[Rfam]
The family of this 354-nucleotide part of an RNA from Mesotoga prima is "Bacterial small subunit ribosomal RNA".

RNA sequence: GGCGUAAAGGGAGCGUAGGUGGCCUGACAUGUCAACUGUGAAAACCCGGAGCUCAACUCCGGACUUGCAGUUGAAACUGCCAGGCUUGAGGACGGUAGAGGAAGACGGAACUGCCAGUGUAGGGGUAAAAUCCUUAGAUAUUGGCAGGAACGCCGGUGACGAAGGUGGUUUUCUGGGCCGGUUCUGACACUGAUGCUCGAAAGCCAGGGGAGCGAACGGGAUUAGAUACCCCGGUAGUCCUGGCCCUAAACGAUGUUCACUAGGUGUGGGGAGCGGAAAGCUUUCCGUGCUAAAGCUAACGCGAUAAGUGAACCGCCUGGGGAGUACGCCCGCAAGGGUGAAACUCAAAGGAAU
Numbered sequence: 001g002g003c004g005u006a007a008a009g010g011g012a013g014c015g016u017a018g019g020u021g022g023c024c025u026g027a028c029a030u031g032u033c034a035a036c037u038g039u040g041a042a043a044a045c046c047c048g049g050a051g052c053u054c055a056a057c058u059c060c061g062g063a064c065u066u067g068c069a070g071u072u073g074a075a076a077c078u079g080c081c082a083g084g085c086u087u088g089a090g091g092a093c094g095g096u097a098g099a100g101g102a103a104g105a106c107g108g109a110a111c112u113g114c115c116a117g118u119g120u121a122g123g124g125g126u127a128a129a130a131u132c133c134u135u136a137g138a139u140a141u142u143g144g145c146a147g148g149a150a151c152g153c154c155g156g157u158g159a160c161g162a163a164g165g166u167g168g169u170u171u172u173c174u175g176g177g178c179c180g181g182u183u184c185u186g187a188c189a190c191u192g193a194u195g196c197u198c199g200a201a202a203g204c205c206a207g208g209g210g211a212g213c214g215a216a217c218g219g220g221a222u223u224a225g226a227u228a229c230c231c232c233g234g235u236a237g238u239c240c241u242g243g244c245c246c247u248a249a250a251c252g253a254u255g256u257u258c259a260c261u262a263g264g265u266g267u268g269g270g271g272a273g274c275g276g277a278a279a280g281c282u283u284u285c286c287g288u289g290c291u292a293a294a295g296c297u298a299a300c301g302c303g304a305u306a307a308g309u310g311a312a313c314c315g316c317c318u319g320g321g322g323a324g325u326a327c328g329c330c331c332g333c334a335a336g337g338g339u340g341a342a343a344c345u346c347a348a349a350g351g352a353a354u
Stems, first nucleotide, its partner, number of pairs: 001317003009314001011198004016192001018191003022085005028079001031077001032074009046062006089185003093180004100174007107151001111147008122133003159166002203244006212238002217233004255313006263291012295302002319346003328339004

The source organism's lineage runs through Bacteria, Thermotogota, Kosmotogales, Kosmotogaceae and Mesotoga prima.